[Rfam]
RNA sequence: UGUCCUUAGAAACCAAGUAUGGGUGUGGCCUGGAAUGACAAUAUGGCGACCCAUCCUUGGUUUCUGAGGCCG
Numbered sequence: 001u002g003u004c005c006u007u008a009g010a011a012a013c014c015a016a017g018u019a020u021g022g023g024u025g026u027g028g029c030c031u032g033g034a035a036u037g038a039c040a041a042u043a044u045g046g047c048g049a050c051c052c053a054u055c056c057u058u059g060g061u062u063u064c065u066g067a068g069g070c071c072g
Base pairs, nucleotide, nucleotide: 002071004069005068006067007066009064010063011062012061013060014059016057017056021052022051023050024049028047029046030045